[Rfam]
RNA sequence: CCUUGUGUGCGACCACAAGUAGCCUACGGUGACAUGCAAAUCCAGUAAUGGACUUGUGUGAAGCUCGCCCGACAACGUACUCCCGCUAACGCGGUACCCCUCAUCCGCAAGGAUAGGGGUAGAUGCUGCCAGCAGAAAUGGCGGUUGAGAGG
Numbered sequence: 001c002c003u004u005g006u007g008u009g010c011g012a013c014c015a016c017a018a019g020u021a022g023c024c025u026a027c028g029g030u031g032a033c034a035u036g037c038a039a040a041u042c043c044a045g046u047a048a049u050g051g052a053c054u055u056g057u058g059u060g061a062a063g064c065u066c067g068c069c070c071g072a073c074a075a076c077g078u079a080c081u082c083c084c085g086c087u088a089a090c091g092c093g094g095u096a097c098c099c100c101u102c103a104u105c106c107g108c109a110a111g112g113a114u115a116g117g118g119g120u121a122g123a124u125g126c127u128g129c130c131a132g133c134a135g136a137a138a139u140g141g142c143g144g145u146u147g148a149g150a151g152g
Base pairs, nucleotide, nucleotide: 002019003018004017005016006015007014028069029068030067031066032065033060034059035058036057037056038055039054041052042051043050044049083094084093085092086091095121096120097119098118105112106111125145126144127143128142129141130140
RNA: Group II catalytic intron D1-D4-7
Organism: Comamonas testosteroni